[Rfam]
RNA sequence: UCUUCAUUCUUCGCACUAUCUCACCGGUUAGAGAUGCGAGAGAGUGUGCAAAAAUGAGGAGA
Number, nucleotide and partner (000 for none) at each position: 001u060002c059003u058004u057005c056006a055007u054008u000009c000010u050011u000012c048013g047014c046015a045016c044017u043018a000019u041020c040021u039022c038023a000024c000025c000026g000027g000028u000029u000030a000031g000032a000033g000034a000035u000036g000037c000038g022039a021040g020041a019042g000043a017044g016045u015046g014047u013048g012049c000050a010051a000052a000053a000054a007055u006056g005057a004058g003059g002060a001061g000062a000
RNA: mir-8364 microRNA precursor family